[Rfam]
Source information:
A member of the RNA family "Fluoride riboswitch aptamer (crcB RNA motif)" from Bifidobacterium subtile, 74 nucleotides long. The organism belongs to Bifidobacterium, within Bacteria. The match comes from Rfam's covariance-model search (45 bits).
Nucleotides: 074
Stems, first nucleotide, its partner, number of pairs: 010026004016065006046055003
Number, partner (000 for none) and nucleotide at each position: 001000a002000u003000g004000a005000a006000c007000a008000g009000c010026g011025g012024g013023u014000a015000u016065g017064a018063g019062g020061u021060u022000c023013a024012c025011c026010c027000u028000g029000g030000g031000c032000a033000c034000a035000c036000g037000g038000c039000c040000c041000g042000a043000a044000c045000c046055g047054c048053c049000u050000u051000c052000g053048g054047g055046c056000u057000g058000a059000u060021g061020a062019c063018u064017u065016c066000u067000g068000c069000a070000g071000g072000g073000a074000u